[Rfam]
RNA: Plastid-rpl16 group II-D1 intron
RNA sequence: UAGAGCUAGAGUCAAUAAAGACUGAGAAAAUUGACUCAAAAACAAA
Numbered sequence: 001u002a003g004a005g006c007u008a009g010a011g012u013c014a015a016u017a018a019a020g021a022c023u024g025a026g027a028a029a030a031u032u033g034a035c036u037c038a039a040a041a042a043c044a045a046a
Base pairs, nucleotide, nucleotide: 007039009037010036011035012034013033014032015031016030